Shown here is a 70-nucleotide RNA sequence from Selaginella moellendorffii, a member of the family "Small nucleolar RNA U54".
The family's RNA type in Rfam is C/D-box small nucleolar RNA.
U54 is a C/D box small nucleolar RNA, which acts as a methylation guide for 18S ribosomal RNA in plants.
Gene Ontology terms of the family: nucleolus and RNA processing.
A reference for the family is Chen et al. (2003), "The high diversity of snoRNAs in plants: identification and comparative study of 120 snoRNA genes from Oryza sativa", Nucleic Acids Res.
The base pairs follow the family's consensus structure, which was predicted with PFOLD.
Rfam 15.1 lists 614 matches to the family in 206 species.

RNA sequence: GGCUCUAUGAUUUGUUUGUGUAUACGCUAUGCUGAGUUUUUGAUGCUGAAGUUUCAAUCGUAUGAGAGCC
Numbered sequence: 001g002g003c004u005c006u007a008u009g010a011u012u013u014g015u016u017u018g019u020g021u022a023u024a025c026g027c028u029a030u031g032c033u034g035a036g037u038u039u040u041u042g043a044u045g046c047u048g049a050a051g052u053u054u055c056a057a058u059c060g061u062a063u064g065a066g067a068g069c070c
Base pairs, nucleotide, nucleotide: 001070002069003068004067005066